[Rfam]
RNA: MIR828 microRNA precursor family
RNA sequence: GUAAUGUUUCUUGCUCAAAUGAGUAUUCCAAUCACAGUUGCAUUUUGCAUACACAAUCUCCUUUGCUUUUCUUUCAGUAUCUCCACUGUAAAUUUUGUGGUUGCUGAUGCUGCUGUGUCUCUGAGAUGCUCAUUUGAGCAAGUAAUGUUAU
Numbered sequence: 001g002u003a004a005u006g007u008u009u010c011u012u013g014c015u016c017a018a019a020u021g022a023g024u025a026u027u028c029c030a031a032u033c034a035c036a037g038u039u040g041c042a043u044u045u046u047g048c049a050u051a052c053a054c055a056a057u058c059u060c061c062u063u064u065g066c067u068u069u070u071c072u073u074u075c076a077g078u079a080u081c082u083c084c085a086c087u088g089u090a091a092a093u094u095u096u097g098u099g100g101u102u103g104c105u106g107a108u109g110c111u112g113c114u115g116u117g118u119c120u121c122u123g124a125g126a127u128g129c130u131c132a133u134u135u136g137a138g139c140a141a142g143u144a145a146u147g148u149u150a151u
Stems, first nucleotide, its partner, number of pairs: 004148005010142018029123002